[Rfam]
Rfam assigns this 112-nucleotide sequence from Lysinibacillus sphaericus to the family "TPP riboswitch aptamer (THI element)". NCBI's taxonomy places the organism under Bacteria, Bacillati, Bacilli, Bacillaceae, Lysinibacillus. Vitamin B(1) in its active form thiamin pyrophosphate (TPP) is an essential coenzyme that is synthesised by coupling of pyrimidine and thiazole moieties in bacteria.
RNA sequence: UUAAGAAUGUAGGGGGGCUGGAAGUUGCCAGCUGAGAUUGCGUCCGUUCAGAUGCUGACCCUUUGAACCUGAUUUGGCUCGUACCAGCGUAGGGAACAUCUAUUCAAAAAUA
Numbered sequence: 001u002u003a004a005g006a007a008u009g010u011a012g013g014g015g016g017g018c019u020g021g022a023a024g025u026u027g028c029c030a031g032c033u034g035a036g037a038u039u040g041c042g043u044c045c046g047u048u049c050a051g052a053u054g055c056u057g058a059c060c061c062u063u064u065g066a067a068c069c070u071g072a073u074u075u076g077g078c079u080c081g082u083a084c085c086a087g088c089g090u091a092g093g094g095a096a097c098a099u100c101u102a103u104u105c106a107a108a109a110a111u112a
Stems, first nucleotide, its partner, number of pairs: 007099004011062004016056001017032005040055004068093004074087004